Shown here is a 114-nucleotide sequence from Propionibacterium cyclohexanicum, a member of the family "ALIL pseudoknot". Gene Ontology term of the family: positive regulation of translational frameshifting. The organism belongs to Propionibacterium, within Bacteria.
[Rfam]
RNA sequence: GGCUUUCUUCGCGGCGGAGCUCGACCGCCCACAGAGCAGAUGAUCAGCUUCAUCGGCGCGCACAGGGAUGAGUUCGGGGUCGAGCCGAUCUGCGGGGAGCUGCCGAUCGCCCCG
Numbered sequence: 001g002g003c004u005u006u007c008u009u010c011g012c013g014g015c016g017g018a019g020c021u022c023g024a025c026c027g028c029c030c031a032c033a034g035a036g037c038a039g040a041u042g043a044u045c046a047g048c049u050u051c052a053u054c055g056g057c058g059c060g061c062a063c064a065g066g067g068a069u070g071a072g073u074u075c076g077g078g079g080u081c082g083a084g085c086c087g088a089u090c091u092g093c094g095g096g097g098a099g100c101u102g103c104c105g106a107u108c109g110c111c112c113c114g
Stems, first nucleotide, its partner, number of pairs: 013029005075114005086109002089106002092103004